[Rfam]
Shown here is a 71-nucleotide RNA from Nocardiopsis metallicus, a member of the family "Actino-pnp RNA".
The source organism's lineage runs through Bacteria, Bacillati, Actinomycetes, Streptosporangiales and Nocardiopsis.
Rfam classes the family as a cis-regulatory element.
The family's consensus secondary structure is taken from published work.

RNA sequence: GUCGGUCCUCGGUAGUGGUCUCCGGACACCACCCGUCACGGGUGUGCCGUGGGCUUCGAUCGAUGACCGGC
Numbered sequence: 001g002u003c004g005g006u007c008c009u010c011g012g013u014a015g016u017g018g019u020c021u022c023c024g025g026a027c028a029c030c031a032c033c034c035g036u037c038a039c040g041g042g043u044g045u046g047c048c049g050u051g052g053g054c055u056u057c058g059a060u061c062g063a064u065g066a067c068c069g070g071c
Stems, first nucleotide, its partner, number of pairs: 001071007009063005017055005023049003027044003